This 103-nucleotide RNA from Malikia granosa belongs to the Rfam family "SAH (S-adenosyl-L-homocysteine) riboswitch aptamer". The match comes from Rfam's covariance-model search (54 bits). Pairs were carried over by alignment from the consensus structure, which is taken from published work. The organism belongs to Malikia, within Bacteria.
[Rfam]
RNA sequence: UAUUCCGAGGAGCGUUGCAGCCCGGGCGCAAGGCCCGAGCGAGGCUCGGAUUUCCCCCUCCCCCUCGUGGCGGGUCGGGCACAAACAACGGCGCUCACCCACU
Numbered sequence: 001u002a003u004u005c006c007g008a009g010g011a012g013c014g015u016u017g018c019a020g021c022c023c024g025g026g027c028g029c030a031a032g033g034c035c036c037g038a039g040c041g042a043g044g045c046u047c048g049g050a051u052u053u054c055c056c057c058c059u060c061c062c063c064c065u066c067g068u069g070g071c072g073g074g075u076c077g078g079g080c081a082c083a084a085a086c087a088a089c090g091g092c093g094c095u096c097a098c099c100c101a102c103u
Stems, first nucleotide, its partner, number of pairs: 002052001004050005021039001023037004